Notes: Shown here is a 67-nucleotide RNA sequence from Varanus komodoensis, a member of the family "mir-33 microRNA precursor family". Taxonomically the source falls in Varanus (Eukaryota, Chordata, Tetrapoda, Varanidae). Rfam links the family to the GO terms gene silencing by miRNA and RISC complex. The base pairs follow the family's consensus structure, which was predicted with PFOLD. The match comes from Rfam's covariance-model search (70 bits). On this family, see Li et al., BMC Genomics 2009: "Direct sequencing and expression analysis of a large number of miRNAs in Aedes aegypti and a multi-species survey of novel mosquito miRNAs".
RNA sequence: CGGGGGUGCAUUGUAGUUGCAUUGCACGUGUGCCUGAGUUGUGCAAUGCCCCUCCAGUGCAGCCUCG
Numbered sequence: 001c002g003g004g005g006g007u008g009c010a011u012u013g014u015a016g017u018u019g020c021a022u023u024g025c026a027c028g029u030g031u032g033c034c035u036g037a038g039u040u041g042u043g044c045a046a047u048g049c050c051c052c053u054c055c056a057g058u059g060c061a062g063c064c065u066c067g
Stems, first nucleotide, its partner, number of pairs: 001067004006063001007061007015053002019049001021047007